Source information
This 45-nucleotide RNA sequence from Acanthisitta chloris belongs to the Rfam family "Histone 3' UTR stem-loop". The match comes from Rfam's covariance-model search (38 bits). By type it is a cis-regulatory element.
[Rfam]
RNA sequence: AAAAAGGCUCUUUUAAGAGCCACCCACAUCGUUCCUAAAAAGUUG
Dot-bracket structure: .....((((((....))))))........................